RNA sequence: GGUUGUAUAGUGUAGUGGUUAUCACUGUUGGUUCUGAUCCAAUAAACCCCGGUUCGAAUCCGGGUACGACCU
Numbered sequence: 001g002g003u004u005g006u007a008u009a010g011u012g013u014a015g016u017g018g019u020u021a022u023c024a025c026u027g028u029u030g031g032u033u034c035u036g037a038u039c040c041a042a043u044a045a046a047c048c049c050c051g052g053u054u055c056g057a058a059u060c061c062g063g064g065u066a067c068g069a070c071c072u
Base pairs, nucleotide, nucleotide: 001071002070003069004068005067006066007065010025011024012023027043028042029041030040031039048064049063050062051061052060

The family of this 72-nucleotide RNA from Babjeviella inositovora is "tRNA".
The family's RNA type in Rfam is transfer RNA.